[Rfam]
RNA sequence: AAUAAAGGCGCAAUAACAAACUUCUUGAUAGAACAAGAAAUUUGUUAUUGCUCCUUUAU
Number, nucleotide and partner (000 for none) at each position: 001a000002a000003u000004a057005a056006a055007g054008g053009c000010g051011c050012a049013a048014u047015a046016a000017c000018a000019a042020a041021c000022u039023u038024c037025u036026u035027g034028a000029u000030a000031g000032a000033a000034c027035a026036a025037g024038a023039a022040a000041u020042u019043u000044g000045u000046u015047a014048u013049u012050g011051c010052u000053c008054c007055u006056u005057u004058a000059u000
Notes:
This 59-nucleotide sequence belongs to the Rfam family "Plastid-psbA-4 3UTR RNA". It is annotated as a cis-regulatory element. The family's consensus secondary structure was predicted with LocARNA. From the family's description: Plastid psbA-4 is a non-coding RNA (ncRNA) present in plastids. It was identified in inverted repeat sequences in the 3 prime untranslate region (3UTR) of photosystem II quinone-binding protein (psbA). On this family, see Richter et al., Plant Commun 2023: "Retrograde signaling in plants: A critical review focusing on the GUN pathway and beyond". It is one of the family's seed sequences.